Rfam assigns this 586-nucleotide part of an RNA from Desertihabitans brevis to the family "Bacterial large subunit ribosomal RNA".

RNA sequence: CGCGCAGCAGGACGGAAAGACCCCGGGACCUUUACUAUAGUUUGGUAUUGGUGUUCGGUACAGCUUGUGUAGGAUAGGUGGGAGACUGUGAAGCGGUCACGCCAGUGGUCGUGGAGUCAUCGUUGAAAUACCACUCUGGCUGUUCUGGAUAUCUAACCUGGGUCCAUGAUCUGGAUCAGGGACAGUGCCUGAUGGGUAGUUUGACUGGGGCGGUCGCCUCCCAAAAGGUAACGGAGGCGCCCAAAGGUUCCCUCAGCCUGGUUGGCAAUCAGGUGUCGAGUGUAAGUGCACAAGGGAGCUUGACUGUGAGACAGACAUGUCGAGCAGGGACGAAAGUCGGGACUAGUGAUCUGACGGUGGCGUGUGGAAGCGCCGUCACUCAACGGAUAAAAGGUACCCCGGGGAUAACAGGCUGAUCUUGCCCGAGCGUCCAUAGCGACGGCAUGGUUUGGCACCUCGAUGUCGGCUCGUCGCAUCCUGGGGCUGGAGUCGGUCCCAAGGGUUGGGCUGUUCGCCCAUUAAAGCGGCACGCGAGCUGGGUUCAGAACGUCGUGAGACAGUUCGGUCCCUAUCCGCUGCGCGCGGA
Dot-bracket structure: ((((((((.(((.((......(((((((((((.((((...((.((((..(((((((((.((((((.(.........(((((..(((......((((((((....))))))))...)))............)))))).)))))).)))))))))...(((.((((((.....))))))))).....)))).))....))))..((((.....))))((((((...........))))))(.((....((((((((.((((((.......))))))...))((......))....))))))....((((..(((......)))..)))).(((....))).))..........(((((((.((........))))))))).....)......)))))..))))))........(((.(((.((((...((.......))...)))).))..))))..........(((((((((((..((.((((((......))))))...)).(((((.....))))).....)))))..)..)))).).....(((((((....))).))))....))..)))))))))))....
NCBI's taxonomy places the organism under Bacteria, Bacillati, Actinomycetota, Propionibacteriales, Desertihabitans. The match comes from Rfam's covariance-model search (2761 bits). The family's consensus secondary structure is taken from published work.